small nucleolar RNA snoR126: a 92-nucleotide RNA sequence from Zea mays. Rfam classes the family as a C/D-box small nucleolar RNA. The family's consensus secondary structure was predicted with RNAalifold. For this family Rfam cites "Mining small RNA sequencing data: a new approach to identify small nucleolar RNAs in Arabidopsis" (Chen and Wu, Nucleic Acids Res, 2009).
RNA sequence: UGGCUAUGAUGAUAAAAUGUUUGUUUCUCGAUGCUGAGACUUGAAUUAUUCAAGGACUAUAUUUUGAUGAGCUCUGUGUGUGUCUGAGCCAG
Numbered sequence: 001u002g003g004c005u006a007u008g009a010u011g012a013u014a015a016a017a018u019g020u021u022u023g024u025u026u027c028u029c030g031a032u033g034c035u036g037a038g039a040c041u042u043g044a045a046u047u048a049u050u051c052a053a054g055g056a057c058u059a060u061a062u063u064u065u066g067a068u069g070a071g072c073u074c075u076g077u078g079u080g081u082g083u084c085u086g087a088g089c090c091a092g
Base pairs, nucleotide, nucleotide: 001091002090003089004088